A member of the RNA family "MIR159 microRNA precursor family" from Nelumbo nucifera, 190 nucleotides long. The family's consensus secondary structure was predicted with WAR. The family has 66 seed sequences and 3,649 matches in Rfam 15.1. The match comes from Rfam's covariance-model search (98 bits). On this family, see Jones-Rhoades and Bartel, Mol Cell 2004: "Computational identification of plant microRNAs and their targets, including a stress-induced miRNA".
[Rfam]
RNA sequence: GAUUUGUGAAGGGAGCUCCCUUCAGUCCAAGAACGGGAAGCAUAAGAUCCAACUUAUCUCCCGCAUCAUUCGCUCAUCUACCAAGCAGUGGCUCCCUUCUUUACUUGGUAUUUGGGUGAAUGAGUCGGCAGUUAAUUAAAUCUUACCACCUCCCAUGAGUGGACUGAAGGAAGCUCUCUUUGCAAAAUUU
Numbered sequence: 001g002a003u004u005u006g007u008g009a010a011g012g013g014a015g016c017u018c019c020c021u022u023c024a025g026u027c028c029a030a031g032a033a034c035g036g037g038a039a040g041c042a043u044a045a046g047a048u049c050c051a052a053c054u055u056a057u058c059u060c061c062c063g064c065a066u067c068a069u070u071c072g073c074u075c076a077u078c079u080a081c082c083a084a085g086c087a088g089u090g091g092c093u094c095c096c097u098u099c100u101u102u103a104c105u106u107g108g109u110a111u112u113u114g115g116g117u118g119a120a121u122g123a124g125u126c127g128g129c130a131g132u133u134a135a136u137u138a139a140a141u142c143u144u145a146c147c148a149c150c151u152c153c154c155a156u157g158a159g160u161g162g163a164c165u166g167a168a169g170g171a172a173g174c175u176c177u178c179u180u181u182g183c184a185a186a187a188u189u190u
Stems, first nucleotide, its partner, number of pairs: 013176005019170002023166007036153001058131002061128003067122004075114001